[Rfam]
The record is a 239-nucleotide RNA sequence from Artemisia annua, which matches "RNase MRP" in Rfam. By type it is a ribozyme. The family's consensus secondary structure is taken from published work. NCBI's taxonomy places the organism under Eukaryota, Euphyllophyta, Pentapetalae, Artemisiinae, Artemisia.
RNA sequence: GGACCAAUGGACGAUGUGAUUGGGCUAAUGAAUCCACUUAGUGGGUUUGGGCUCAGGAAAGUCCCCGGGCCACUACGCAGAGAUGCGGGCUUGGAAACGAGUUAAGGCUCGUAGUAAAUUCAGGCUGAGACACGUGUGGGAGCUAUUGGAUUUGCUCGAGCUGAAUAUGGCCGAACUAAAACAGUCAUUCACAUGGUCACUCGUGUGACUAACUGAACGGGGCUUAUGAUCCAUUGGUC
Number, nucleotide and partner (000 for none) at each position: 001g000002g239003a238004c237005c236006a235007a234008u233009g232010g231011a230012c000013g000014a194015u193016g192017u191018g190019a189020u000021u000022g054023g053024g052025c051026u000027a000028a000029u000030g000031a000032a046033u045034c044035c043036a042037c041038u000039u000040a000041g037042u036043g035044g034045g033046u032047u000048u000049g000050g000051g025052c024053u023054c022055a000056g000057g000058a000059a225060a224061g223062u000063c222064c221065c220066c219067g000068g000069g000070c000071c000072a000073c000074u000075a000076c087077g086078c085079a084080g000081a000082g000083a000084u079085g078086c077087g076088g103089g102090c101091u100092u099093g098094g000095a000096a000097a000098c093099g092100a091101g090102u089103u088104a000105a162106g161107g000108c000109u000110c000111g000112u000113a156114g155115u154116a153117a152118a151119u150120u149121c148122a000123g144124g143125c142126u000127g000128a000129g000130a000131c000132a000133c000134g000135u000136g000137u000138g000139g000140g000141a000142g125143c124144u123145a000146u000147u000148g121149g120150a119151u118152u117153u116154g115155c114156u113157c000158g000159a000160g000161c106162u105163g000164a000165a000166u000167a000168u000169g000170g000171c000172c000173g000174a000175a000176c000177u000178a000179a000180a000181a000182c000183a000184g000185u000186c000187a000188u000189u019190c018191a017192c016193a015194u014195g000196g209197u208198c207199a206200c205201u000202c000203g000204u000205g200206u199207g198208a197209c196210u000211a000212a000213c000214u000215g000216a000217a000218c000219g066220g065221g064222g063223c061224u060225u059226a000227u000228g000229a000230u011231c010232c009233a008234u007235u006236g005237g004238u003239c002